The family of this 343-nucleotide RNA sequence from Sphingomonas jatrophae is "Alphaproteobacteria transfer-messenger RNA".
Lineage of the source: Bacteria > Pseudomonadati > Alphaproteobacteria > Sphingomonadaceae > Sphingomonas.
Its family is annotated with RNA catabolic process in the Gene Ontology.
About the family: Bacterial tmRNA, also known as 10Sa RNA or SsrA, is named for its dual tRNA and mRNA-like properties. Its role is to liberate the mRNA from a stalled ribosome.
The base pairs follow the family's consensus structure, which is taken from published work.
Its Rfam clan is "tRNA clan".
RNA sequence: AAGCUUGCGCCGGCUGCGCGGGCGCCUAUAUCGGAACGUGCCGGCUCCGGCCGGCUAUGGCAAUAAAUGGCAGCGUGUAAGGCGCAGCGGACCCGGGGGCGGUACCCGGCGGCUCCACCAGAAGGAUCGCUUUCAGCGGUGCUCCUGACGGGGCCGAACUAGGAUCGACGUGCGGACGAGCAUUCUGUUUUUGCCCGGGCUGAGUAACCCGUAAAAGGCUCAAAACCACAAGUGCCAACGACAACGAGGCGCUCGCGAUUGCGGCCUAACCCGGUCCUAACGGACUAGGUUAGUUUCGACAAAAGCGCGGUUCGGGCCGCACCGGGCAACAGAAGCGGACACC
Number, nucleotide and partner (000 for none) at each position: 001a000002a000003g000004c000005u000006u000007g000008c000009g000010c000011c000012g000013g000014c000015u000016g000017c000018g000019c000020g000021g000022g000023c000024g000025c000026c000027u000028a000029u000030a000031u000032c000033g000034g000035a000036a000037c000038g000039u000040g055041c054042c053043g052044g051045c000046u000047c000048c000049g000050g000051c044052c043053g042054g041055c040056u000057a000058u000059g195060g194061c193062a192063a191064u000065a000066a000067a000068u000069g000070g188071c187072a186073g185074c000075g183076u182077g000078u000079a000080a000081g000082g000083c174084g173085c172086a000087g171088c170089g169090g000091a000092c000093c109094c108095g107096g106097g105098g000099g000100c000101g000102g000103u000104a000105c097106c096107c095108g094109g093110c156111g155112g154113c153114u152115c151116c150117a000118c000119c000120a000121g000122a000123a000124g000125g000126a000127u000128c000129g000130c000131u000132u000133u000134c000135a000136g000137c000138g000139g000140u000141g000142c000143u000144c000145c000146u000147g000148a000149c000150g116151g115152g114153g113154c112155c111156g110157a000158a000159c000160u000161a000162g000163g000164a000165u000166c000167g000168a000169c089170g088171u087172g085173c084174g083175g000176a000177c000178g000179a000180g000181c000182a076183u075184u000185c073186u072187g071188u070189u000190u000191u063192u062193g061194c060195c059196c211197g210198g209199g208200c000201u222202g221203a220204g000205u000206a000207a000208c199209c198210c197211g196212u000213a000214a000215a000216a000217g000218g000219c000220u203221c202222a201223a000224a000225a000226c000227c000228a000229c000230a000231a000232g000233u000234g000235c000236c000237a000238a000239c000240g000241a000242c000243a000244a000245c000246g000247a000248g000249g000250c000251g000252c000253u000254c000255g000256c000257g000258a000259u000260u000261g000262c000263g000264g000265c000266c000267u000268a000269a000270c000271c000272c000273g000274g000275u000276c000277c000278u000279a000280a000281c000282g000283g000284a000285c000286u000287a000288g000289g000290u000291u000292a000293g000294u000295u000296u000297c000298g000299a000300c000301a000302a000303a000304a000305g000306c000307g000308c324309g323310g322311u321312u000313c000314g340315g000316g000317c337318c000319g000320c000321a311322c310323c309324g308325g000326g000327c000328a000329a000330c000331a000332g000333a000334a000335g000336c000337g317338g000339a000340c314341a000342c000343c000